[Rfam]
Nucleotides: 333
Base pairs, nucleotide, nucleotide: 001329002328003327004326005325006324007323008322009321010320011318012298013297014296015295016294017293018292020033021032022031023030024029038316039315040314042313043312044311045310046309047207048206049205050204054236055235056234057233059203060202061201062200063199064078065077066076067075068074079093080091081090082089083088094198095197099196100195101192102191103190115138116137117134118133119132120131121130122129123128146164147163149161150160151159165187166185167184168183169182170181171180172179173178211255212254213253214252219246220245221244222243223242224241228240229239230238231237262281263280264279265278266277267276268275269274
Number, partner (000 for none) and nucleotide at each position: 001329c002328g003327a004326g005325u006324a007323g008322a009321a010320u011318a012298a013297a014296u015295g016294a017293u018292c019000g020033c021032g022031a023030g024029a025000g026000u027000a028000a029024u030023c031022u032021c033020g034000a035000g036000g037000a038316a039315a040314g041000u042313c043312c044311g045310g046309g047207c048206u049205u050204c051000a052000u053000a054236g055235g056234g057233c058000a059203g060202g061201a062200u063199g064078c065077c066076g067075g068074a069000u070000a071000a072000c073000g074068u075067c076066c077065g078064g079093u080091g081090g082089a083088g084000g085000c086000g087000a088083c089082u090081c091080c092000c093079a094198g095197g096000c097000u098000a099196g100195u101192g102191c103190a104000a105000c106000a107000g108000a109000a110000a111000u112000a113000u114000a115138c116137c117134g118133c119132u120131u121130c122129u123128a124000a125000u126000u127000u128123u129122a130121g131120g132119a133118g134117u135000a136000a137116g138115g139000g140000u141000g142000g143000a144000a145000a146164g147163g148000c149161a150160g151159u152000g153000u154000a155000a156000g157000a158000g159151a160150c161149u162000a163147c164146c165187g166185u167184c168183u169182a170181u171180u172179u173178g174000g175000u176000a177000a178173c179172a180171a181170a182169u183168a184167g185166g186000g187165c188000u189000c190103u191102g192101u193000a194000a195100a196099c197095c198094c199063c200062a201061u202060c203059c204050g205049a206048a207047g208000c209000a210000a211255g212254a213253c214252c215000a216000a217000u218000a219246g220245a221244a222243a223242g224241c225000a226000u227000a228240a229239g230238g231237c232000g233057g234056c235055c236054c237231g238230u239229c240228u241224g242223c243222u244221u245220u246219c247000g248000g249000g250000u251000a252214g253213g254212u255211c256000g257000c258000u259000u260000g261000a262281u263280u264279u265278u266277a267276c268275u269274g270000g271000u272000a273000a274269c275268a276267g277266u278265a279264a280263a281262a282000c283000u284000a285000g286000a287000u288000a289000g290000a291000u292018g293017a294016u295015c296014a297013u298012u299000c300000a301000c302000g303000a304000c305000a306000g307000a308000a309046c310045c311044c312043g313042g314040c315039u316038u317000a318011u319000c320010g321009u322008u323007c324006u325005a326004c327003u328002c329001g330000u331000u332000u333000u